[Rfam]
RNA sequence: CGAUCAGGGGAUCGGGAUACGCCGCCAGGCGUGCUCCAGGGGCAGAGGGGGUGCCUCCGCGCAAGCGGGUCGGAUCGGGACGGAC
Numbered sequence: 001c002g003a004u005c006a007g008g009g010g011a012u013c014g015g016g017a018u019a020c021g022c023c024g025c026c027a028g029g030c031g032u033g034c035u036c037c038a039g040g041g042g043c044a045g046a047g048g049g050g051g052u053g054c055c056u057c058c059g060c061g062c063a064a065g066c067g068g069g070u071c072g073g074a075u076c077g078g079g080a081c082g083g084a085c
Stems, first nucleotide, its partner, number of pairs: 001077005010071004014037003018033001020031004039057006